[Rfam]
RNA sequence: GCGAGGUGCCUUGCUGGCUGGUGCUGAUGGAAGCCUGAAGAACUCCCAUCGUCCCAGGUCAGCGGGCACCUCUUCUAUGUCGGGGAUCCCCGGGGACCAAUCACCGCGAGGCGGAUCCAG
Numbered sequence: 001g002c003g004a005g006g007u008g009c010c011u012u013g014c015u016g017g018c019u020g021g022u023g024c025u026g027a028u029g030g031a032a033g034c035c036u037g038a039a040g041a042a043c044u045c046c047c048a049u050c051g052u053c054c055c056a057g058g059u060c061a062g063c064g065g066g067c068a069c070c071u072c073u074u075c076u077a078u079g080u081c082g083g084g085g086a087u088c089c090c091c092g093g094g095g096a097c098c099a100a101u102c103a104c105c106g107c108g109a110g111g112c113g114g115a116u117c118c119a120g
Base pairs, nucleotide, nucleotide: 003072004071005070006069007068008067009066010065011064015061016060017059019057021055023053025051026050027049028048030046032044033043104114105113106112